[Rfam]
RNA sequence: AAGAGUCAUGGAGGUAGUUGCGAACUAAACUUUUCCUGUGAGGUUUAAGAUUUAGUUUGAGGAAAGUCCGGACUCCCGAAAGACCAAACCUGCUGGGUAACGCCCAGUGCGCGCGAGCGUGAGGAUAGUGCCACAGAAAAAUACCGCCUCCGAUUAGAGGUAAGGGUGCAAAGGUGAGGGUAAGAGCCCACCAGCAGUAUCGAGAGGUACUGGCUCGGUAAACCCCGGUUGGGAGCAAGGUCGAAGGAAUUAUGGUUGGUCUUUUCCCGAUUCCGCUUUUGGUGUACCGCUUGAGGUGAUUAGUAAUAUUCAUCCCAGAUAGAUAACUACCCCUUUAAUUUAUUUAAAGGAACAGAAUCCGGCUUAUGAGUGACUCUUCUUU
Dot-bracket structure: (((((((((.(.(((((((.(((((((((.....................)))))))))....[[[.[[[[[((((.....[....(((.(((((((.....)))))(((((....)))).)((...(((((...........(((((((......)))))..)).......((((.((.......)))))).((((((((....))))))).)..)))..))))))))).))))...(((.......(...((...((((.....].)))).))...)......)))......(((((.((....)).)))))..........)))))))..........................]]]]]]]].)..)))))))))....